Rfam assigns this 82-nucleotide RNA from Bucco capensis to the family "Small nucleolar RNA SNORD127". The literature on the family includes a 2006 paper in Nucleic Acids Res by Yang et al., "snoSeeker: an advanced computational package for screening of guide and orphan snoRNA genes in the human genome".
[Rfam]
RNA sequence: UGGCAACCAUGAUGACAGCAACUCUAGCUGUAAUGUUUCCUUACUGCAUGGAGACACCAGUCCCUCUAAACUGAUGUUGCCA
Numbered sequence: 001u002g003g004c005a006a007c008c009a010u011g012a013u014g015a016c017a018g019c020a021a022c023u024c025u026a027g028c029u030g031u032a033a034u035g036u037u038u039c040c041u042u043a044c045u046g047c048a049u050g051g052a053g054a055c056a057c058c059a060g061u062c063c064c065u066c067u068a069a070a071c072u073g074a075u076g077u078u079g080c081c082a
Base pairs, nucleotide, nucleotide: 001082002081003080004079005078006077007076
The base pairs follow the family's consensus structure, which was predicted with WAR. NCBI's taxonomy places the organism under Eukaryota, Chordata, Euteleostomi, Theropoda, Bucco.